[Rfam]
Shown here is a 119-nucleotide RNA from Saimiri boliviensis, a member of the family "U5 spliceosomal RNA".
It scores 63 bits against the family's covariance model.
The source organism's lineage runs through Eukaryota, Bilateria, Euteleostomi, Amniota and Saimiri boliviensis.
The literature on the family includes a 1997 paper in Nucleic Acids Res by Zwieb, "The uRNA database".
By type it is a spliceosomal small nuclear RNA.
From the family's description: U5 RNA is a component of both types of known spliceosome. The precise function of this molecule is unknown, though it is known that the 5' loop is required for splice site selection and p220 binding, and that both the 3' stem-loop and the Sm site are important for Sm protein binding and cap methylation.
RNA sequence: AUACUCUGGUUUCUCUUCAAAUCGUAUAAAUCUUUAGUCUUUAGUCUUUUACUAAAGAUUUCCAUGGAGAGGAACAAUUCUGAGUCUUUUUUUCUUUUUUUUGAGAUGGAGUUUCGCUC
Numbered sequence: 001a002u003a004c005u006c007u008g009g010u011u012u013c014u015c016u017u018c019a020a021a022u023c024g025u026a027u028a029a030a031u032c033u034u035u036a037g038u039c040u041u042u043a044g045u046c047u048u049u050u051a052c053u054a055a056a057g058a059u060u061u062c063c064a065u066g067g068a069g070a071g072g073a074a075c076a077a078u079u080c081u082g083a084g085u086c087u088u089u090u091u092u093u094c095u096u097u098u099u100u101u102u103g104a105g106a107u108g109g110a111g112u113u114u115c116g117c118u119c
Base pairs, nucleotide, nucleotide: 003085004084005083006082009075010074011073012072013071014070015069016068017067018066019065028061029060030059031058032057033056034055035054036053037052038051109119110118